[Rfam]
RNA sequence: CCACCCUGGAAAAAAUGUAUUUCCAGGGUGGAAAUACAUUUUUUCCACCCUGGAAAAAAUGUAUUUUUUCCAGGGUGGAAAAAAUACAUUUUUCCACCCUGGAAAAAUGUAUUUUUCCAGGGUGGAAAAAU
Numbered sequence: 001c002c003a004c005c006c007u008g009g010a011a012a013a014a015a016u017g018u019a020u021u022u023c024c025a026g027g028g029u030g031g032a033a034a035u036a037c038a039u040u041u042u043u044u045c046c047a048c049c050c051u052g053g054a055a056a057a058a059a060u061g062u063a064u065u066u067u068u069u070c071c072a073g074g075g076u077g078g079a080a081a082a083a084a085u086a087c088a089u090u091u092u093u094c095c096a097c098c099c100u101g102g103a104a105a106a107a108u109g110u111a112u113u114u115u116u117c118c119a120g121g122g123u124g125g126a127a128a129a130a131u
Stems, first nucleotide, its partner, number of pairs: 008049002011042004017037009050073008091128016
Dot-bracket structure: .......((.((((..(((((((((...))))))))).)))).....))((((((((........)))))))).................((((((((((((((((......))))))))))))))))...